[Rfam]
RNA sequence: GAUGCGGAAUGCUGGUUCUUAGGACAGGGGUUCGAUUCCCCUCAUCUCCAUACGAGGGGAUGCACUGGUUUCGACUGGGUUCAAAGGUCGUAUCUGUUGACGGAACAAAACCACAAACGCUAACAACAUAGUUAGUUUCUCUCGUCAGAAAGCACUUGUUGCUGCCUGA
Dot-bracket structure: (((((...........((.(((...(((((.......)))))(((((((......)))))))............)))))..........)))))...........................................................................
Numbered sequence: 001g002a003u004g005c006g007g008a009a010u011g012c013u014g015g016u017u018c019u020u021a022g023g024a025c026a027g028g029g030g031u032u033c034g035a036u037u038c039c040c041c042u043c044a045u046c047u048c049c050a051u052a053c054g055a056g057g058g059g060a061u062g063c064a065c066u067g068g069u070u071u072c073g074a075c076u077g078g079g080u081u082c083a084a085a086g087g088u089c090g091u092a093u094c095u096g097u098u099g100a101c102g103g104a105a106c107a108a109a110a111c112c113a114c115a116a117a118c119g120c121u122a123a124c125a126a127c128a129u130a131g132u133u134a135g136u137u138u139c140u141c142u143c144g145u146c147a148g149a150a151a152g153c154a155c156u157u158g159u160u161g162c163u164g165c166c167u168g169a
Stems, first nucleotide, its partner, number of pairs: 001094005017079002020077003026042005043062007
Annotation: The family of this 169-nucleotide sequence from Prochlorococcus sp. AG-363-L17 is "permuted transfer-messenger RNA". For this family Rfam cites "Phylogenetic analysis of tmRNA secondary structure" (Williams and Bartel, RNA, 1996). The base pairs follow the family's consensus structure, which is taken from published work. The sequence is in the family's curated seed alignment. It is annotated as a non-coding RNA gene.